mir-43 microRNA precursor family: an 82-nucleotide sequence from Caenorhabditis bovis. A reference for the family is de Wit et al. (2009), "Repertoire and evolution of miRNA genes in four divergent nematode species", Genome Res. The source organism's lineage runs through Eukaryota, Bilateria, Protostomia, Rhabditida and Caenorhabditis. Pairs were carried over by alignment from the consensus structure, which was predicted with RNAalifold. It scores 63 bits against the family's covariance model.

RNA sequence: CGCUGCCCGCGACCGCAAGAGUCUGUGAUUAUGGCUGAUGAUAGUUGCACAUAUCACAGUCUACUUGCUGUCUCGGGCGGCG
Numbered sequence: 001c002g003c004u005g006c007c008c009g010c011g012a013c014c015g016c017a018a019g020a021g022u023c024u025g026u027g028a029u030u031a032u033g034g035c036u037g038a039u040g041a042u043a044g045u046u047g048c049a050c051a052u053a054u055c056a057c058a059g060u061c062u063a064c065u066u067g068c069u070g071u072c073u074c075g076g077g078c079g080g081c082g
Stems, first nucleotide, its partner, number of pairs: 003080005009074001011072003016067004020062002023059007031052003034048001